Shown here is an 80-nucleotide RNA from Etheostoma spectabile, a member of the family "Small nucleolar RNA SNORD74". The family is grouped with related families in Rfam's "SNORD74 clan". The source organism's lineage runs through Eukaryota, Deuterostomia, Teleostomi, Percoidei and Oligocephalus. It scores 69 bits against the family's covariance model. It is annotated as a C/D-box small nucleolar RNA. Pairs were carried over by alignment from the consensus structure, which was predicted with PFOLD. On this family, see Galardi et al., Mol Cell Biol 2002: "Purified box C/D snoRNPs are able to reproduce site-specific 2'-O-methylation of target RNA in vitro".
RNA sequence: CCCAUGAUAUAUGAUGAAAUAAAUGUUGGUAGGGACAUCUGAAUUAAUGUGAAGAAUGCCAACAUCUCUGACUGCAUGGG
Numbered sequence: 001c002c003c004a005u006g007a008u009a010u011a012u013g014a015u016g017a018a019a020u021a022a023a024u025g026u027u028g029g030u031a032g033g034g035a036c037a038u039c040u041g042a043a044u045u046a047a048u049g050u051g052a053a054g055a056a057u058g059c060c061a062a063c064a065u066c067u068c069u070g071a072c073u074g075c076a077u078g079g080g
Stems, first nucleotide, its partner, number of pairs: 001080005